[Rfam]
Nucleotides: 168
Stems, first nucleotide, its partner, number of pairs: 006163005011154002013095001015150003020144003025140008039113005045074005054065004080104004086098003115128003
Number, partner (000 for none) and nucleotide at each position: 001000a002000u003000a004000a005000a006163a007162a008161u009160c010159u011154g012153u013095u014000a015150g016149g017148u018000g019000a020144g021143g022142c023000u024000c025140c026139u027138g028137u029136a030135u031134g032133g033000a034000a035000a036000c037000a038000c039113g040112c041111u042110g043109c044000u045074g046073c047072c048071c049070a050000a051000a052000a053000a054065u055064g056063u057062c058000g059000a060000g061000a062057g063056a064055c065054g066000c067000c068000a069000a070049u071048g072047g073046g074045u075000c076000a077000a078000c079000u080104g081103g082102a083101a084000u085000u086098g087097u088096c089000g090000a091000a092000u093000g094000a095013a096088g097087g098086c099000u100000c101083u102082u103081c104080c105000u106000a107000a108000u109043g110042u111041a112040g113039c114000u115128g116127a117126a118000g119000u120000a121000a122000u123000g124000a125000c126117u127116u128115c129000u130000a131000a132000g133032c134031c135030a136029u137028g138027u139026a140025g141000u142022g143021c144020u145000a146000a147000a148017g149016c150015u151000c152000g153012a154011c155000u156000u157000u158000g159010a160009g161008g162007u163006u164000a165000c166000u167000g168000u
Source information: This 168-nucleotide RNA sequence from Vagococcus elongatus belongs to the Rfam family "M-box riboswitch aptamer (ykoK leader)". The base pairs follow the family's consensus structure.